Annotation
Shown here is a 192-nucleotide RNA, a member of the family "Burkholderia sRNA Bp1_Cand738_SIPHT". Rfam classes the family as a small RNA. Pairs were carried over by alignment from the consensus structure, which was predicted with RNAalifold. The literature on the family includes a 2012 paper in BMC Genomics by Khoo et al., "Computational discovery and RT-PCR validation of novel Burkholderia conserved and Burkholderia pseudomallei unique sRNAs". A search with the family's covariance model found it, with a score of 82 bits.

RNA sequence: CAAAAAGCCGGCGUAUUGUGUCAGCCGGCCGAUGUCAGUUUGCGCUGCCCUUAGCGGGAAGGGCCAGCGUGACGCGAUGCGUCGAACAAGAUUGCGGAGCGCGAUGCAGUCCGGCAAUCAAUGAGGUCGGAUUCUAACAGGGUUUUAUAGGUCGUCAAUGCUAAAAAUUCAACGAUCCAAUACUUUUAGUUA
Number, nucleotide and partner (000 for none) at each position: 001c000002a000003a000004a000005a000006a000007g000008c028009c027010g026011g025012c024013g022014u000015a000016u000017u000018g000019u000020g000021u000022c013023a000024g012025c011026c010027g009028g008029c000030c000031g000032a000033u000034g000035u000036c000037a000038g000039u000040u000041u000042g102043c101044g100045c099046u098047g064048c063049c062050c061051u060052u000053a000054g000055c000056g000057g000058g000059a000060a051061g050062g049063g048064c047065c000066a000067g000068c000069g000070u000071g083072a082073c081074g080075c079076g000077a000078u000079g075080c074081g073082u072083c071084g000085a000086a000087c000088a000089a000090g000091a000092u000093u000094g000095c000096g000097g000098a046099g045100c044101g043102c042103g000104a000105u000106g000107c000108a000109g000110u000111c000112c000113g000114g000115c000116a000117a000118u000119c000120a000121a000122u160123g159124a000125g000126g000127u000128c154129g153130g152131a000132u000133u151134c150135u149136a148137a000138c000139a000140g000141g000142g000143u000144u000145u000146u000147a000148u136149a135150g134151g133152u130153c129154g128155u000156c000157a000158a000159u123160g122161c000162u000163a000164a000165a000166a000167a000168u000169u000170c000171a000172a000173c000174g000175a000176u000177c000178c000179a000180a000181u000182a000183c000184u000185u000186u000187u000188a000189g000190u000191u000192a000